[Rfam]
RNA sequence: AUCUUUGCGCUUGGGGCAAUGACGCAGUUAGUGAGGGUUUCCCGAGACGCGUCAAUUGCUGGUUGAAAACUAUUUCCAAACCCCCUCCCAGGUCUGCCCUCGGGGUUGGCCUCGGAGAAUUUUUGGAAGGCUUGUUCAGC
Number, nucleotide and partner (000 for none) at each position: 001a000002u000003c000004u000005u000006u000007g000008c000009g000010c000011u000012u000013g000014g000015g000016g000017c000018a000019a000020u000021g053022a052023c051024g050025c049026a000027g048028u047029u046030a000031g000032u000033g000034a000035g043036g042037g041038u000039u000040u000041c037042c036043c035044g000045a000046g029047a028048c027049g025050c024051g023052u022053c021054a000055a000056u000057u000058g000059c000060u000061g000062g000063u000064u000065g000066a000067a000068a000069a000070c000071u000072a000073u000074u000075u000076c000077c000078a000079a000080a000081c000082c000083c000084c000085c117086u116087c115088c000089c000090a112091g111092g110093u109094c108095u000096g106097c105098c104099c103100u000101c000102g000103g099104g098105g097106u096107u000108g094109g093110c092111c091112u090113c000114g000115g087116a086117g085118a000119a000120u000121u000122u000123u000124u000125g000126g000127a000128a000129g000130g140131c139132u138133u000134g000135u000136u000137c000138a132139g131140c130
Shown here is a 140-nucleotide sequence from Ceratopteris richardii, a member of the family "U4 spliceosomal RNA". The family has 177 seed sequences and 32,178 matches in Rfam 15.1. The family is grouped with related families in Rfam's "U4 clan". Pairs were carried over by alignment from the consensus structure, which is taken from published work. Rfam classes the family as a spliceosomal small nuclear RNA. Lineage of the source: Eukaryota > Streptophyta > Streptophytina > Pteridaceae > Ceratopteris.